[Rfam]
RNA sequence: GGCAGAUGCACUCUGUGACACACAGAAAUCCACUUGUGAUUACAAUUUGUUAGUUUGCCAGAGCAAGGGGAUGCGGUUUAUCCAUGUAGUCUAAGCCCUGCCUGGGGGAUUGCAUUGAAAACGUAUCUUACACUAU
Number, nucleotide and partner (000 for none) at each position: 001g000002g058003c057004a056005g055006a054007u053008g000009c000010a050011c049012u000013c000014u044015g043016u042017g040018a000019c038020a037021c036022a035023c000024a000025g033026a000027a000028a000029u000030c000031c000032a000033c025034u000035u022036g021037u020038g019039a000040u017041u000042a016043c015044a014045a000046u000047u000048u000049g011050u010051u000052a000053g007054u006055u005056u004057g003058c002059c000060a000061g000062a000063g000064c000065a134066a000067g129068g128069g127070g000071a126072u125073g124074c000075g000076g122077u000078u000079u000080a000081u118082c117083c000084a115085u114086g113087u112088a111089g110090u109091c105092u104093a000094a000095g000096c000097c000098c000099u000100g000101c000102c000103u000104g092105g091106g000107g000108g000109a090110u089111u088112g087113c086114a085115u084116u000117g082118a081119a000120a000121a000122c076123g000124u073125a072126u071127c069128u068129u067130a000131c000132a000133c000134u065135a000136u000
RNA: Small nucleolar RNA psi18S-841/snoR66
Organism: Drosophila ananassae